[Rfam]
Nucleotides: 065
Stems, first nucleotide, its partner, number of pairs: 004062007013055005019049010
Number, partner (000 for none) and nucleotide at each position: 001000a002000u003000a004062u005061a006060c007059a008058c009057u010056g011000a012000g013055u014054g015053g016052c017051c018000a019049g020048a021047u022046u023045a024044u025043u026042a027041u028040g029000a030000c031000u032000u033000c034000u035000g036000a037000a038000c039000g040028c041027a042026u043025a044024a045023u046022a047021a048020u049019c050000u051017g052016g053015c054014c055013a056010c057009a058008g059007u060006g061005u062004a063000u064000a065000u
The family of this 65-nucleotide sequence from Cnephaeus nilssonii is "mir-9256 microRNA precursor family". The base pairs follow the family's consensus structure, which was predicted with RNAalifold. Rfam 15.1 lists 31,772 matches to the family in 5 species. Lineage of the source: Eukaryota > Metazoa > Laurasiatheria > Vespertilionidae > Cnephaeus.